[Rfam]
Bacterial RNase P class A: a 379-nucleotide sequence from Jannaschia donghaensis.

RNA sequence: GCGGGGGGCCGGACGACCGCGGCUGCGAGGUCGAGGAAAGUCCGGACUCCACGAAGCGACGGUGCCGGGUAACGCCCGGGCGGGGCAACCCGACGGACAGCGCCACAGAAAACAAACCACCCCCGUUCGCGGGGGCCAGGGUGAAACGGUGCGGUAAGAGCGCACCGGGGGGGCGGCAACGUUCCCCGCAUGGCAAGCCCCACCGGGAGCAAUGCCGAAUAGGGAUCCCGCGUCCAUGCCUUCGGGCCGGGCAAGGCGCUUCGCCCCAGGGGUCCGGGUUGGCAGCUUGAGGCCGCGAAGCGAUUCGCGGUCCAGAUGAAUGGUCGUCGAACCGGAGAGAUCCGGGGAACAAAAUCCGGCUUACAGGCCCCCCGCACGC
Numbered sequence: 001g002c003g004g005g006g007g008g009c010c011g012g013a014c015g016a017c018c019g020c021g022g023c024u025g026c027g028a029g030g031u032c033g034a035g036g037a038a039a040g041u042c043c044g045g046a047c048u049c050c051a052c053g054a055a056g057c058g059a060c061g062g063u064g065c066c067g068g069g070u071a072a073c074g075c076c077c078g079g080g081c082g083g084g085g086c087a088a089c090c091c092g093a094c095g096g097a098c099a100g101c102g103c104c105a106c107a108g109a110a111a112a113c114a115a116a117c118c119a120c121c122c123c124c125g126u127u128c129g130c131g132g133g134g135g136c137c138a139g140g141g142u143g144a145a146a147c148g149g150u151g152c153g154g155u156a157a158g159a160g161c162g163c164a165c166c167g168g169g170g171g172g173g174c175g176g177c178a179a180c181g182u183u184c185c186c187c188g189c190a191u192g193g194c195a196a197g198c199c200c201c202a203c204c205g206g207g208a209g210c211a212a213u214g215c216c217g218a219a220u221a222g223g224g225a226u227c228c229c230g231c232g233u234c235c236a237u238g239c240c241u242u243c244g245g246g247c248c249g250g251g252c253a254a255g256g257c258g259c260u261u262c263g264c265c266c267c268a269g270g271g272g273u274c275c276g277g278g279u280u281g282g283c284a285g286c287u288u289g290a291g292g293c294c295g296c297g298a299a300g301c302g303a304u305u306c307g308c309g310g311u312c313c314a315g316a317u318g319a320a321u322g323g324u325c326g327u328c329g330a331a332c333c334g335g336a337g338a339g340a341u342c343c344g345g346g347g348a349a350c351a352a353a354a355u356c357c358g359g360c361u362u363a364c365a366g367g368c369c370c371c372c373c374g375c376a377c378g379c
Base pairs, nucleotide, nucleotide: 001375002374003373004372005371006370007369008368009367010366011364012328013327014326015325016324017323018322020033021032022031023030024029038362039361040360042359043358044357045356046355047209048208049207050206056261058259060205061204062203063202064201065079066078067077068076069075080094081092082091083090084089095200096199100198101197102194103193104192117140118139120135121134122133123132124131125130148166149165150164151163152162153161167189168187169186170185171184172183173182174181175180213284214283215282216281223275224274225273226272227271228270255266256265257263292311293310294309295308296307297306298305299304